[Rfam]
RNA sequence: GGUACGGGGAUGUGCGAUCUCCCCGCGAGGCGACAUGCCCAAGCAUCGCGUCCUGGAUCACCAAGGGCGCCGCAUG
Numbered sequence: 001g002g003u004a005c006g007g008g009g010a011u012g013u014g015c016g017a018u019c020u021c022c023c024c025g026c027g028a029g030g031c032g033a034c035a036u037g038c039c040c041a042a043g044c045a046u047c048g049c050g051u052c053c054u055g056g057a058u059c060a061c062c063a064a065g066g067g068c069g070c071c072g073c074a075u076g
Base pairs, nucleotide, nucleotide: 005025006024007023008022009021010020048070049069050068051067052066053065
Rfam assigns this 76-nucleotide RNA from Bradyrhizobium sp. BTAi1 to the family "chrB-a RNA". Pairs were carried over by alignment from the consensus structure, which is taken from published work. Rfam classes the family as a cis-regulatory element.